The family of this 104-nucleotide RNA from Sphingomonas sinipercae is "Glycine riboswitch aptamer". Rfam's curators write: This family represents the bacterial glycine riboswitch. Gene Ontology term of the family: glycine biosynthetic process. The source organism's lineage runs through Bacteria, Pseudomonadota, Sphingomonadales, Sphingomonadaceae and Sphingomonas.
RNA sequence: AAAGGCCGCGCGGGAGAGUUCGGGCAAGCUUCUCAACAGCUUGACCGGCGCCGAAGGAGCAACCGCCUCCGGAAUCUCUCAGGCAACAGGACCGCGCGGGCCUG
Number, nucleotide and partner (000 for none) at each position: 001a000002a000003a000004g000005g000006c099007c098008g097009c096010g095011c094012g093013g092014g000015a000016g000017a000018g000019u000020u048021c047022g046023g045024g000025c000026a000027a000028g000029c000030u000031u000032c000033u000034c000035a000036a000037c000038a000039g000040c000041u000042u000043g000044a000045c023046c022047g021048g020049c000050g084051c083052c082053g080054a079055a000056g000057g078058a077059g076060c000061a000062a000063c000064c071065g000066c000067c000068u000069c000070c000071g064072g000073a000074a000075u000076c059077u058078c057079u054080c053081a000082g052083g051084c050085a000086a000087c000088a000089g000090g000091a000092c013093c012094g011095c010096g009097c008098g007099g006100g000101c000102c000103u000104g000